[Rfam]
RNA sequence: GCCGGUCCUCGGUAGUGGUUGCCGGGAGCGCGAGGAGCAGUAUCGCGUGCCCGGGAACUUCGAUCGAUGACCGGC
Numbered sequence: 001g002c003c004g005g006u007c008c009u010c011g012g013u014a015g016u017g018g019u020u021g022c023c024g025g026g027a028g029c030g031c032g033a034g035g036a037g038c039a040g041u042a043u044c045g046c047g048u049g050c051c052c053g054g055g056a057a058c059u060u061c062g063a064u065c066g067a068u069g070a071c072c073g074g075c
Stems, first nucleotide, its partner, number of pairs: 001075007009067005017059004022054005029049004
Shown here is a 75-nucleotide sequence from Halopolyspora algeriensis, a member of the family "Actino-pnp RNA". It scores 65 bits against the family's covariance model. Taxonomically the source falls in Halopolyspora (Bacteria, Bacillati, Actinomycetota, Actinomycetes).